Rfam assigns this 113-nucleotide RNA from Sphingobium sp. C100 to the family "Manganese Mn2+ riboswitch aptamer (yybP-ykoY)". The family has 29 seed sequences and 1,126 matches in Rfam 15.1.
RNA sequence: UGACGCGUCAUCUGGGGAGUAGCCAGCCGUUCGCGCGAUGCGAGCGGGCCAUAUGUCAACAUAUUUGGCCGAGAGGCCGUGGCAUAUGGGACGCGGAUCAAGCUGUCCGCGUC
Numbered sequence: 001u002g003a004c005g006c007g008u009c010a011u012c013u014g015g016g017g018a019g020u021a022g023c024c025a026g027c028c029g030u031u032c033g034c035g036c037g038a039u040g041c042g043a044g045c046g047g048g049c050c051a052u053a054u055g056u057c058a059a060c061a062u063a064u065u066u067g068g069c070c071g072a073g074a075g076g077c078c079g080u081g082g083c084a085u086a087u088g089g090g091a092c093g094c095g096g097a098u099c100a101a102g103c104u105g106u107c108c109g110c111g112u113c
Base pairs, nucleotide, nucleotide: 027047028046029045030044031043049089050088051087052086053085054084055083056082057081058080066079067078068077069076070075090113091112092111093110094109095108096107097106098105